[Rfam]
RNA: ALIL pseudoknot
Organism: Aquibium carbonis
RNA sequence: CGCAUAUUCUGCGCAGGCGAAGCUCGACUGCCCCUUCAAACGAUGAUCGCGUUCAUUGACGAUCAUCGCAAGACCAUGGGUUCGAGCCGGUAUGCAAGGUGCUGCCGAUUGCCCCG
Numbered sequence: 001c002g003c004a005u006a007u008u009c010u011g012c013g014c015a016g017g018c019g020a021a022g023c024u025c026g027a028c029u030g031c032c033c034c035u036u037c038a039a040a041c042g043a044u045g046a047u048c049g050c051g052u053u054c055a056u057u058g059a060c061g062a063u064c065a066u067c068g069c070a071a072g073a074c075c076a077u078g079g080g081u082u083c084g085a086g087c088c089g090g091u092a093u094g095c096a097a098g099g100u101g102c103u104g105c106c107g108a109u110u111g112c113c114c115c116g
Stems, first nucleotide, its partner, number of pairs: 016032004077116004088111002091108001094105003